[Rfam]
RNA: DUF3800-VII RNA
RNA sequence: UGCAGGCAUGCGCGGGAGCAAGACCAGGCCGGUGUAGGCCGGCAGCGCCGUGACGACGGCGUGGGAACCUGGUCCCCGGUGCCUGCAAGGCU
Numbered sequence: 001u002g003c004a005g006g007c008a009u010g011c012g013c014g015g016g017a018g019c020a021a022g023a024c025c026a027g028g029c030c031g032g033u034g035u036a037g038g039c040c041g042g043c044a045g046c047g048c049c050g051u052g053a054c055g056a057c058g059g060c061g062u063g064g065g066a067a068c069c070u071g072g073u074c075c076c077c078g079g080u081g082c083c084u085g086c087a088a089g090g091c092u
Base pairs, nucleotide, nucleotide: 001087002086003085004084005083006082007081011079013078014077015076016075022074023073024072025071026070027069028043029042030041031040032039033038046061047060048059049058